The family of this 73-nucleotide RNA from Adineta ricciae is "mir-87 microRNA precursor family".
The source organism's lineage runs through Eukaryota, Gnathifera, Bdelloidea, Adinetida and Adineta.
The family's consensus secondary structure was predicted with RNAalifold.
The match comes from Rfam's covariance-model search (55 bits).
On this family, see Ruby et al., Genome Res 2007: "Evolution, biogenesis, expression, and target predictions of a substantially expanded set of Drosophila microRNAs".
Its family is annotated with RISC complex and miRNA-mediated post-transcriptional gene silencing in the Gene Ontology.

RNA sequence: AAAUGCACGCCUGAAAUUUUUCUCAAACCUUUGCUCUUGCGUGAAUAGGUGAGCAAAGUUUCAGGUGUAUUGA
Numbered sequence: 001a002a003a004u005g006c007a008c009g010c011c012u013g014a015a016a017u018u019u020u021u022c023u024c025a026a027a028c029c030u031u032u033g034c035u036c037u038u039g040c041g042u043g044a045a046u047a048g049g050u051g052a053g054c055a056a057a058g059u060u061u062c063a064g065g066u067g068u069a070u071u072g073a
Stems, first nucleotide, its partner, number of pairs: 002071003008067007016059005022053004028049003